[Rfam]
RNA: drz-agam-1 ribozyme
RNA sequence: CUAUUACCAAACCCUAUCUCCACCUCCACGUGGUGAUCGCUGGGCGUUCUUUCUUCAUGAAAAACUGCAGGCGGAGAAGG
Numbered sequence: 001c002u003a004u005u006a007c008c009a010a011a012c013c014c015u016a017u018c019u020c021c022a023c024c025u026c027c028a029c030g031u032g033g034u035g036a037u038c039g040c041u042g043g044g045c046g047u048u049c050u051u052u053c054u055u056c057a058u059g060a061a062a063a064a065c066u067g068c069a070g071g072c073g074g075a076g077a078a079g080g
Stems, first nucleotide, its partner, number of pairs: 013080003017076001019074002022034003045067002048064001050062004